[Rfam]
RNA sequence: AAUGAUAACAAGGGGAGCUUGUACUACAGGCUGAGAGGAAGUUUUUAACUUCGACCCGUAACCUGAUUUGGAUAAUGCCAACGUAGGGAUAUACAGUAUGUGGGAU
Numbered sequence: 001a002a003u004g005a006u007a008a009c010a011a012g013g014g015g016a017g018c019u020u021g022u023a024c025u026a027c028a029g030g031c032u033g034a035g036a037g038g039a040a041g042u043u044u045u046u047a048a049c050u051u052c053g054a055c056c057c058g059u060a061a062c063c064u065g066a067u068u069u070g071g072a073u074a075a076u077g078c079c080a081a082c083g084u085a086g087g088g089a090u091a092u093a094c095a096g097u098a099u100g101u102g103g104g105a106u
Stems, first nucleotide, its partner, number of pairs: 008092001010090001012057003017031005038052005062087004068081004